Rfam assigns this 80-nucleotide sequence from Trichechus manatus to the family "Small nucleolar RNA SNORD100". By type it is a C/D-box small nucleolar RNA. Rfam 15.1 lists 838 matches to the family in 626 species. Its Rfam clan is "SNORD100 clan".

[Rfam]
RNA sequence: GCUGUACAUGAUGACAACUGGCUCCCUCUACUGAAUCUGGUGAGGAAAUUGCCAUGUCACCCACCAAUUCUGACUACAGC
Numbered sequence: 001g002c003u004g005u006a007c008a009u010g011a012u013g014a015c016a017a018c019u020g021g022c023u024c025c026c027u028c029u030a031c032u033g034a035a036u037c038u039g040g041u042g043a044g045g046a047a048a049u050u051g052c053c054a055u056g057u058c059a060c061c062c063a064c065c066a067a068u069u070c071u072g073a074c075u076a077c078a079g080c
Base pairs, nucleotide, nucleotide: 001080002079003078004077005076006075